[Rfam]
RNA sequence: GCCGAGCCUGGUAACGCUGGCUUGUAACCCGAGCGGGGGCAACGAGGUGGUGGGAUGUUGUGUUCAGCUCGAGUGGGUUGGGUGCGGUCUCGCAAGAAUUGGCUUGCCCGUUCCAAGUCAGGUAGUUGAUCCAUGCGGCCCGGGCGAAAGCCCGAGCCCUAUGGAAUCGUAAAGCGGAGGGCACCGCGUCAGGCUGGUUUCACAGAGCAGCGAUUACCACCCGCUCUUGACGGUGGAAGGAUAACAGGCCGGUGCACGCCGCACUCGCCAUGCCCACCGGGCUAACACCAACCAGACCACCACUUUU
Number, nucleotide and partner (000 for none) at each position: 001g040002c039003c038004g023005a022006g021007c020008c019009u000010g017011g000012u000013a000014a000015c000016g000017c010018u000019g008020g007021c006022u005023u004024g000025u000026a000027a000028c037029c036030c035031g000032a000033g000034c000035g030036g029037g028038g003039g002040c001041a000042a000043c000044g306045a305046g304047g303048u302049g301050g300051u299052g298053g297054g000055a000056u294057g293058u291059u290060g289061u287062g286063u285064u284065c000066a000067g000068c281069u280070c279071g278072a000073g277074u276075g275076g274077g273078u272079u000080g266081g265082g264083u263084g262085c261086g260087g259088u000089c258090u000091c000092g255093c000094a253095a000096g000097a000098a000099u252100u251101g250102g249103c248104u247105u246106g245107c000108c240109c239110g000111u238112u237113c236114c235115a234116a000117g231118u230119c229120a228121g227122g226123u000124a225125g224126u223127u000128g168129a167130u165131c164132c163133a162134u161135g160136c000137g158138g157139c156140c000141c154142g153143g152144g151145c150146g000147a000148a000149a000150g145151c144152c143153c142154g141155a000156g139157c138158c137159c000160u135161a134162u133163g132164g131165a130166a000167u129168c128169g000170u000171a000172a000173a000174g000175c000176g221177g220178a000179g218180g217181g000182c000183a000184c000185c000186g000187c212188g211189u210190c000191a000192g000193g000194c205195u204196g203197g000198u000199u000200u000201c000202a000203c196204a195205g194206a000207g000208c000209a000210g189211c188212g187213a000214u000215u000216a000217c180218c179219a000220c177221c176222c000223g126224c125225u124226c122227u121228u120229g119230a118231c117232g000233g000234u115235g114236g113237a112238a111239g109240g108241a000242u000243a000244a000245c106246a105247g104248g103249c102250c101251g100252g099253u094254g000255c092256a000257c000258g089259c087260c086261g085262c084263a083264c082265u081266c080267g000268c000269c000270a000271u000272g078273c077274c076275c075276a074277c073278c071279g070280g069281g068282c000283u000284a064285a063286c062287a061288c000289c060290a059291a058292c000293c057294a056295g000296a000297c053298c052299a051300c050301c049302a048303c047304u046305u045306u044307u000